Source information:
Rfam assigns this 160-nucleotide RNA sequence from Aspergillus puulaauensis to the family "A. fumigatus sRNA Afu_254". The base pairs follow the family's consensus structure, which was predicted with WAR. The literature on the family includes a 2008 paper in Nucleic Acids Res by Jochl et al., "Small ncRNA transcriptome analysis from Aspergillus fumigatus suggests a novel mechanism for regulation of protein synthesis".
RNA sequence: UCUCCGAAUCCCACUUUAUACAAACACUUUCAAGGUUCUAAACCAAACACCACCAACCAACCUCAAAAUGUCUCCCUGCGCCUGCAACUGCUGCUCCGGCAACUGCAACUCCUGCUCUUGCAGCUCUUGCACCGUGAGUGUUUCCAAGUCCCCAGUGGCC
Numbered sequence: 001u002c003u004c005c006g007a008a009u010c011c012c013a014c015u016u017u018a019u020a021c022a023a024a025c026a027c028u029u030u031c032a033a034g035g036u037u038c039u040a041a042a043c044c045a046a047a048c049a050c051c052a053c054c055a056a057c058c059a060a061c062c063u064c065a066a067a068a069u070g071u072c073u074c075c076c077u078g079c080g081c082c083u084g085c086a087a088c089u090g091c092u093g094c095u096c097c098g099g100c101a102a103c104u105g106c107a108a109c110u111c112c113u114g115c116u117c118u119u120g121c122a123g124c125u126c127u128u129g130c131a132c133c134g135u136g137a138g139u140g141u142u143u144c145c146a147a148g149u150c151c152c153c154a155g156u157g158g159c160c
Stems, first nucleotide, its partner, number of pairs: 077101003084094003105130003114121002

It scores 94 bits against the family's covariance model.